[Rfam]
RNA sequence: ACUCGUGACACGGGGUGCCGCCCGAUCGGCUGAGAACACACCCGUUGAACCUGAUCUAGUCAGUACUAGCGAAGGGAUGUCGCAAUGCGCGAUG
Number, nucleotide and partner (000 for none) at each position: 001a000002c000003u000004c000005g000006u082007g081008a080009c079010a078011c044012g043013g042014g041015g000016u038017g030018c029019c028020g027021c000022c000023c000024g000025a000026u000027c020028g019029g018030c017031u000032g000033a000034g000035a000036a000037c000038a016039c000040a000041c014042c013043c012044g011045u000046u000047g000048a000049a000050c075051c074052u073053g000054a000055u000056c069057u068058a067059g066060u000061c000062a000063g000064u000065a000066c059067u058068a057069g056070c000071g000072a000073a052074g051075g050076g000077a000078u010079g009080u008081c007082g006083c000084a000085a000086u000087g000088c000089g000090c000091g000092a000093u000094g000
RNA: TPP riboswitch aptamer (THI element)